[Rfam]
RNA sequence: UACAUUUUUGCGCUGAAUUUUUUGGAGACAAAAAAGCGGGGGACCCAAUCGGCAUGCGGAAAUGAAGUAUGCCAUCCGGGGUGAAUCGUUGGCCGCGCGCCAUCGUAGGGCUUCUCUCUAGCCCGAAUCCGACAGCUAACCUCGUAAGCGAACGAAGGAGAGAAU
Numbered sequence: 001u002a003c004a005u006u007u008u009u010g011c012g013c014u015g016a017a018u019u020u021u022u023u024g025g026a027g028a029c030a031a032a033a034a035a036g037c038g039g040g041g042g043a044c045c046c047a048a049u050c051g052g053c054a055u056g057c058g059g060a061a062a063u064g065a066a067g068u069a070u071g072c073c074a075u076c077c078g079g080g081g082u083g084a085a086u087c088g089u090u091g092g093c094c095g096c097g098c099g100c101c102a103u104c105g106u107a108g109g110g111c112u113u114c115u116c117u118c119u120a121g122c123c124c125g126a127a128u129c130c131g132a133c134a135g136c137u138a139a140c141c142u143c144g145u146a147a148g149c150g151a152a153c154g155a156a157g158g159a160g161a162g163a164a165u
Stems, first nucleotide, its partner, number of pairs: 011150004018035006036145006046078001079130003087105002090102001108124004

c-di-AMP riboswitch aptamer (ydaO/yuaA leader): a 165-nucleotide RNA from Paenibacillus protaetiae. The organism belongs to Paenibacillus, within Bacteria. The match comes from Rfam's covariance-model search (88 bits).